[Rfam]
RNA sequence: AGGUGAGGUAGAGGCGCGGGUUAUCAAGAGUAGUAUACCAGAGGUAUUUAAGGGCCGAUGAAGGUAUAUGAAAGGGAUGCUCGCCGAAGCGCGUAAAUUCCUUAAAGUUUACGCAGCUGGGCCUAUGCCGAAUAGGUAUAGGACUGUCACUGGAGGUUUCCCGAGCCUUCAGUGAAGAGCUAUCUCGCUA
Numbered sequence: 001a002g003g004u005g006a007g008g009u010a011g012a013g014g015c016g017c018g019g020g021u022u023a024u025c026a027a028g029a030g031u032a033g034u035a036u037a038c039c040a041g042a043g044g045u046a047u048u049u050a051a052g053g054g055c056c057g058a059u060g061a062a063g064g065u066a067u068a069u070g071a072a073a074g075g076g077a078u079g080c081u082c083g084c085c086g087a088a089g090c091g092c093g094u095a096a097a098u099u100c101c102u103u104a105a106a107g108u109u110u111a112c113g114c115a116g117c118u119g120g121g122c123c124u125a126u127g128c129c130g131a132a133u134a135g136g137u138a139u140a141g142g143a144c145u146g147u148c149a150c151u152g153g154a155g156g157u158u159u160c161c162c163g164a165g166c167c168u169u170c171a172g173u174g175a176a177g178a179g180c181u182a183u184c185u186c187g188c189u190a
Base pairs, nucleotide, nucleotide: 006185007184008183009182010181011180016084017083018082019081020080021079023078024077025076033069034068035067036066037065038064039063088118089117090116091114092113093112094111095110096109097108098107119145120144122142123141124140125139126138127137128136129135147175148174149173150172151171152170153169154168155167156166
Shown here is a 190-nucleotide RNA from Thermoanaerobacter sp. X514, a member of the family "Lysine riboswitch aptamer". From the family's description: Riboswitches are metabolite binding domains within certain messenger RNAs that serve as precision sensors for their corresponding targets. Allosteric rearrangement of mRNA structure is mediated by ligand binding, and this results in modulation of gene expression. This family includes riboswitches that sense lysine in a number of genes involved in lysine metabolism, including lysC. It is one of the family's seed sequences. Lineage of the source: Bacteria > Bacillati > Clostridia > Thermoanaerobacterales > Thermoanaerobacter.